[Rfam]
RNA sequence: GCCCCAUUUGCCCAGUGUUCAGACUACCUGUUCAGGCAGCCAAACAUGCACAGUAGUCUGCACACUGGUUAGGUUGGGCU
Numbered sequence: 001g002c003c004c005c006a007u008u009u010g011c012c013c014a015g016u017g018u019u020c021a022g023a024c025u026a027c028c029u030g031u032u033c034a035g036g037c038a039g040c041c042a043a044a045c046a047u048g049c050a051c052a053g054u055a056g057u058c059u060g061c062a063c064a065c066u067g068g069u070u071a072g073g074u075u076g077g078g079c080u
Stems, first nucleotide, its partner, number of pairs: 012068007020060007028053004033048002
RNA: mir-199 microRNA precursor family
Organism: Geotrypetes seraphini